The family of this 62-nucleotide RNA sequence from Calothrix sp. PCC 6303 is "Nitrogen stress-induced RNA 1". Lineage of the source: Bacteria > Bacillati > Cyanobacteriota > Cyanophyceae > Calothrix.
RNA sequence: UGGUAGAUGCACCCUGAUAACUCAUUUCCCUAGUUGGCUUAAGCUAACUAGGGUUUUUUUCU
Numbered sequence: 001u002g003g004u005a006g007a008u009g010c011a012c013c014c015u016g017a018u019a020a021c022u023c024a025u026u027u028c029c030c031u032a033g034u035u036g037g038c039u040u041a042a043g044c045u046a047a048c049u050a051g052g053g054u055u056u057u058u059u060u061c062u
Stems, first nucleotide, its partner, number of pairs: 002013003028053010
By type it is a small RNA. The base pairs follow the family's consensus structure. It scores 66 bits against the family's covariance model. The family has 17 seed sequences and 962 matches in Rfam 15.1.